[Rfam]
RNA: epsC RNA
RNA sequence: GGGUGAUCGCCGCUGUACCCCUUAUCGUAUGCGGCACCCGGUCAUGCGGUGGGUGAGCUGGAACCUAUUCAGCUGGGCCUUAGACGCGGUCGUCGAAGUUGGGCGACAUGUCGCCAAGCGUAUGAAGAUGGGGGCCGGUUCAAGACCGG
Numbered sequence: 001g002g003g004u005g006a007u008c009g010c011c012g013c014u015g016u017a018c019c020c021c022u023u024a025u026c027g028u029a030u031g032c033g034g035c036a037c038c039c040g041g042u043c044a045u046g047c048g049g050u051g052g053g054u055g056a057g058c059u060g061g062a063a064c065c066u067a068u069u070c071a072g073c074u075g076g077g078c079c080u081u082a083g084a085c086g087c088g089g090u091c092g093u094c095g096a097a098g099u100u101g102g103g104c105g106a107c108a109u110g111u112c113g114c115c116a117a118g119c120g121u122a123u124g125a126a127g128a129u130g131g132g133g134g135c136c137g138g139u140u141c142a143a144g145a146c147c148g149g
Stems, first nucleotide, its partner, number of pairs: 001021003007036001009035005037132004042125007051080003083115001085113002135149005
Dot-bracket structure: [[[...(.(((((.....]]].........))))))((((.(((((((..(((........................)))..(.((.........................)).)...)))))))...))))..(((((.....)))))